This 107-nucleotide RNA from Prevotella sp. S7 MS 2 belongs to the Rfam family "Bacteroidales small SRP". It scores 122 bits against the family's covariance model. Pairs were carried over by alignment from the consensus structure, which is taken from published work. Its family is annotated with signal recognition particle, plasma membrane targeting and SRP-dependent cotranslational protein targeting to membrane, signal sequence recognition in the Gene Ontology. The source organism's lineage runs through Bacteria, Bacteroidota, Bacteroidales, Prevotellaceae and Prevotella.

Nucleotides: 107
Stems, first nucleotide, its partner, number of pairs: 008103008017092005022086002024083002
Number, partner (000 for none) and nucleotide at each position: 001000a002000a003000a004000a005000c006000a007000u008103g009102g010101g011100c012099a013098a014097g015096u016000c017092u018091c019090a020089u021088a022086c023085g024083g025082c026000c027000a028000g029000c030000u031000c032000c033000c034000u035000u036000u037000g038000a039000a040000u041000c042000c043000c044000c045000c046000a047000g048000g049000g050000u051000g052000g053000g054000a055000a056000c057000g058000c059000a060000g061000c062000a063000a064000g065000g066000g067000u068000a069000u070000u071000a072000g073000g074000u075000u076000g077000u078000a079000g080000c081000g082025g083024c084000g085023c086022g087000a088021u089020a090019u091018g092017a093000a094000c095000a096015g097014c098013u099012u100011g101010c102009c103008c104000a105000c106000c107000u